[Rfam]
RNA: Small nucleolar RNA SNORA1
Organism: Geococcyx californianus
RNA sequence: UGCCUCGUUAUUCAGCAAAGAGACACAACACACUGUGUCUUGAAUGAAAAAACGUGGCUAGAAGAGUAACAGGUUAUGCUUUCCUCACUGCAAAGUUAAUUGCAGUGGUGACAAUGAGGCCUGUAACAUAU
Numbered sequence: 001u002g003c004c005u006c007g008u009u010a011u012u013c014a015g016c017a018a019a020g021a022g023a024c025a026c027a028a029c030a031c032a033c034u035g036u037g038u039c040u041u042g043a044a045u046g047a048a049a050a051a052a053c054g055u056g057g058c059u060a061g062a063a064g065a066g067u068a069a070c071a072g073g074u075u076a077u078g079c080u081u082u083c084c085u086c087a088c089u090g091c092a093a094a095g096u097u098a099a100u101u102g103c104a105g106u107g108g109u110g111a112c113a114a115u116g117a118g119g120c121c122u123g124u125a126a127c128a129u130a131u
Stems, first nucleotide, its partner, number of pairs: 002058003006054003020041007069124005083110001085108004